[Rfam]
RNA sequence: ACGGAGACAUGGCGUAAAGCCAGGAAGUAAGGGACACGAACUCAUUAGACUAUAACUUGAACUGAGUUGCAUCUCAUUUU
Numbered sequence: 001a002c003g004g005a006g007a008c009a010u011g012g013c014g015u016a017a018a019g020c021c022a023g024g025a026a027g028u029a030a031g032g033g034a035c036a037c038g039a040a041c042u043c044a045u046u047a048g049a050c051u052a053u054a055a056c057u058u059g060a061a062c063u064g065a066g067u068u069g070c071a072u073c074u075c076a077u078u079u080u
Stems, first nucleotide, its partner, number of pairs: 004075004010022004027070004
The family of this 80-nucleotide RNA sequence is "ctgf/hcs24 CAESAR". The sequence is in the family's curated seed alignment. The literature on the family includes a 1999 paper in FEBS Lett by Kubota et al., "Involvement of cis-acting repressive element(s) in the 3'-untranslated region of human connective tissue growth factor gene". The family has 9 seed sequences and 518 matches in Rfam 15.1. About the family: The 3' UTR of human connective tissue growth factor/hypertrophic chondrocyte specific 24 (ctgf/hcs24) mRNA has been shown to repress ctgf gene expression.